[Rfam]
RNA sequence: GUGACAGAAGAGAGUGAGCACACAUGGUAUUUUCUUGUAUGAUGUUGUUUCAUACUUGAAGCUAUAUGUGCUCACUCUCUUGCUGUCAC
Number, nucleotide and partner (000 for none) at each position: 001g089002u088003g087004a086005c085006a084007g083008a000009a081010g079011a078012g077013a076014g075015u074016g073017a072018g071019c070020a069021c068022a000023c000024a065025u064026g000027g000028u000029a000030u000031u000032u000033u000034c000035u000036u000037g000038u000039a000040u000041g000042a000043u000044g000045u000046u000047g000048u000049u000050u000051c000052a000053u000054a000055c000056u000057u000058g000059a000060a000061g000062c000063u000064a025065u024066a000067u000068g021069u020070g019071c018072u017073c016074a015075c014076u013077c012078u011079c010080u000081u009082g000083c007084u006085g005086u004087c003088a002089c001
Shown here is an 89-nucleotide RNA from Arachis hypogaea, a member of the family "mir-156 microRNA precursor family". About the family: This family represents the plant microRNA (miRNA) precursor mir-156. The family's consensus secondary structure was predicted with PFOLD. Its family is annotated with miRNA-mediated post-transcriptional gene silencing and RISC complex in the Gene Ontology.